[Rfam]
RNA: Small nucleolar RNA SNORD79
RNA sequence: UACUGUUAGUGAUGAUUUUUGAAAUUAAAAACAGAUGGGAAUCUCUCUGAAAAAGAGUGAAGAUUUCUUAAACGCUGAAACAGUA
Number, nucleotide and partner (000 for none) at each position: 001u085002a084003c083004u082005g081006u080007u079008a000009g000010u000011g000012a000013u000014g000015a000016u000017u000018u000019u000020u000021g000022a000023a000024a000025u000026u000027a000028a000029a000030a000031a000032c000033a000034g000035a000036u000037g000038g000039g000040a000041a000042u000043c000044u000045c000046u000047c000048u000049g000050a000051a000052a000053a000054a000055g000056a000057g000058u000059g000060a000061a000062g000063a000064u000065u000066u000067c000068u000069u000070a000071a000072a000073c000074g000075c000076u000077g000078a000079a007080a006081c005082a004083g003084u002085a001